[Rfam]
RNA sequence: ACGAUUCCUCGUUAGGAUGAGGCGUUAGCACAAACAAAAGCUACUGCCCAGAAACGUCGAAAGACGCCAAUGUGGUAGACCAGGUCUGGCCGGAUUAAGGCUUUACUUAAGGUAGCUGGUGAUUACACCUACGUUGUGCUCUGCCAAAACUCGACCAGGGGGGAAGUCA
Numbered sequence: 001a002c003g004a005u006u007c008c009u010c011g012u013u014a015g016g017a018u019g020a021g022g023c024g025u026u027a028g029c030a031c032a033a034a035c036a037a038a039a040g041c042u043a044c045u046g047c048c049c050a051g052a053a054a055c056g057u058c059g060a061a062a063g064a065c066g067c068c069a070a071u072g073u074g075g076u077a078g079a080c081c082a083g084g085u086c087u088g089g090c091c092g093g094a095u096u097a098a099g100g101c102u103u104u105a106c107u108u109a110a111g112g113u114a115g116c117u118g119g120u121g122a123u124u125a126c127a128c129c130u131a132c133g134u135u136g137u138g139c140u141c142u143g144c145c146a147a148a149a150c151u152c153g154a155c156c157a158g159g160g161g162g163g164a165a166g167u168c169a
Stems, first nucleotide, its partner, number of pairs: 005165006011155002013098001015151002018149001021145003027140007040116005046076003049072002055066004083107003089101003118129003
Record summary
The family of this 169-nucleotide RNA sequence from Geobacter sp. OR-1 is "M-box riboswitch aptamer (ykoK leader)". The match comes from Rfam's covariance-model search (134 bits). The source organism's lineage runs through Bacteria, Desulfuromonadia, Geobacterales, Geobacteraceae and Geobacter. M-box riboswitch, also know as ykoK leader is described as a metaloregulatory RNA that sense divalent metals and function as a genetic control element of genes related to divalent metal transport in bacteria. It was first reported upstream of the B.subtilis ykoK gene and genes with related functions in other bacteria. The base pairs follow the family's consensus structure.